[Rfam]
Nucleotides: 119
Base pairs, nucleotide, nucleotide: 003113004112006110012104014102015101016100019058020057021056022055025052026051027050028049029048034044035043036042061086062085063084064083065082066081067080068079069078070077071076087096088095
Number, partner (000 for none) and nucleotide at each position: 001000a002000a003113a004112u005000a006110a007000u008000a009000u010000u011000a012104c013000c014102a015101c016100c017000g018000a019058c020057u021056c022055a023000u024000u025052u026051c027050g028049g029048c030000u031000a032000a033000a034044g035043a036042a037000g038000a039000a040000a041000a042036u043035u044034c045000c046000a047000u048029g049028c050027u051026g052025a053000u054000c055022u056021g057020a058019g059000c060000a061086g062085g063084g064083u065082a066081u067080a068079u069078c070077u071076g072000g073000a074000a075000a076071c077070g078069g079068a080067u081066g082065u083064g084063c085062c086061u087096c088095c089000c090000a091000g092000u093000g094000c095088g096087g097000a098000a099000a100016g101015g102014u103000c104012g105000g106000c107000u108000u109000c110006u111000u112004g113003u114000u115000a116000a117000a118000c119000u